RNA: mir-676 microRNA precursor family
RNA sequence: AAUGCAUCACUCUUCAGCCUCAGGACUUGCAAAAUUAAUGGAAUGCAAACCUAUAGUAGUUGAGUUCUGCAUU
Numbered sequence: 001a002a003u004g005c006a007u008c009a010c011u012c013u014u015c016a017g018c019c020u021c022a023g024g025a026c027u028u029g030c031a032a033a034a035u036u037a038a039u040g041g042a043a044u045g046c047a048a049a050c051c052u053a054u055a056g057u058a059g060u061u062g063a064g065u066u067c068u069g070c071a072u073u
Base pairs, nucleotide, nucleotide: 002072003071004070005069006068010064011063012062015059017057018056022052023051024050029046030045031044